A member of the RNA family "Bacterial RNase P class A" from Paracoccus methylarcula, 395 nucleotides long. The source organism's lineage runs through Bacteria, Pseudomonadati, Rhodobacterales, Paracoccaceae and Paracoccus. The family's RNA type in Rfam is ribozyme. A search with the family's covariance model found it, with a score of 286 bits.
[Rfam]
RNA sequence: GCGGAGGGCCGGAUGACCGCGUGGCCGCUUGCCGCAAGGGAAGGGGCCGCGAGGAAAGUCCGGACUCCAUGAGGCAACGGUGCCGGGUAACGCCCGGCGGGGGCGACCCCAGGGAAAGCGCCACAGAGAACAGACCGCCUCCCGCUUGCGGGUGGCAAGGGUGAAACGGUGGGGUAAGAGCCCACCGGGGGGCUGGCAACAACCCCCGCAUGGCAAGCCCCACCGGGAGCAAUGCCGAAUAGGGAUCGCGCGCGGGGAAACCCGCAGGGCCGCCUUGCCCCAGCAGAUCCGGGUAGGCAGCUUGAUCCGGCCGGUAACGGCCGGGCCAGAGGAAUGGUCAUCCAUCCGGGAGCAAUCCCGGGGGACAGAAUCCGGCUUACAGGCCCUCCGCGCGG
Numbered sequence: 001g002c003g004g005a006g007g008g009c010c011g012g013a014u015g016a017c018c019g020c021g022u023g024g025c026c027g028c029u030u031g032c033c034g035c036a037a038g039g040g041a042a043g044g045g046g047c048c049g050c051g052a053g054g055a056a057a058g059u060c061c062g063g064a065c066u067c068c069a070u071g072a073g074g075c076a077a078c079g080g081u082g083c084c085g086g087g088u089a090a091c092g093c094c095c096g097g098c099g100g101g102g103g104c105g106a107c108c109c110c111a112g113g114g115a116a117a118g119c120g121c122c123a124c125a126g127a128g129a130a131c132a133g134a135c136c137g138c139c140u141c142c143c144g145c146u147u148g149c150g151g152g153u154g155g156c157a158a159g160g161g162u163g164a165a166a167c168g169g170u171g172g173g174g175u176a177a178g179a180g181c182c183c184a185c186c187g188g189g190g191g192g193c194u195g196g197c198a199a200c201a202a203c204c205c206c207c208g209c210a211u212g213g214c215a216a217g218c219c220c221c222a223c224c225g226g227g228a229g230c231a232a233u234g235c236c237g238a239a240u241a242g243g244g245a246u247c248g249c250g251c252g253c254g255g256g257g258a259a260a261c262c263c264g265c266a267g268g269g270c271c272g273c274c275u276u277g278c279c280c281c282a283g284c285a286g287a288u289c290c291g292g293g294u295a296g297g298c299a300g301c302u303u304g305a306u307c308c309g310g311c312c313g314g315u316a317a318c319g320g321c322c323g324g325g326c327c328a329g330a331g332g333a334a335u336g337g338u339c340a341u342c343c344a345u346c347c348g349g350g351a352g353c354a355a356u357c358c359c360g361g362g363g364g365a366c367a368g369a370a371u372c373c374g375g376c377u378u379a380c381a382g383g384c385c386c387u388c389c390g391c392g393c394g395g
Stems, first nucleotide, its partner, number of pairs: 001391010011380001012342007020051007028043003056378003060375005065229004073276002078225005083097005098112001099110004113220002118218002120214003135160002137156003141152004168186006187209001188207005194201002233299004243290005267281003271277001306325008